[Rfam]
RNA sequence: AUGAUUAUUGUGGGAGAGACUAAACGAAUUGUUUGGCACCGAAGGAGCAAGCCUAUUUUUGGGCAGGAAUCUCUCAGGUAAAAGGACUACAAUAUGACG
Numbered sequence: 001a002u003g004a005u006u007a008u009u010g011u012g013g014g015a016g017a018g019a020c021u022a023a024a025c026g027a028a029u030u031g032u033u034u035g036g037c038a039c040c041g042a043a044g045g046a047g048c049a050a051g052c053c054u055a056u057u058u059u060u061g062g063g064c065a066g067g068a069a070u071c072u073c074u075c076a077g078g079u080a081a082a083a084g085g086a087c088u089a090c091a092a093u094a095u096g097a098c099g
Base pairs, nucleotide, nucleotide: 006094007093008092009091010090011089012088013087020036021035022034023033038079039078040077041075042074045073046072047071

The record is a 99-nucleotide RNA from Neobacillus mesonae, which matches "Glycine riboswitch aptamer" in Rfam. The organism belongs to Neobacillus, within Bacteria.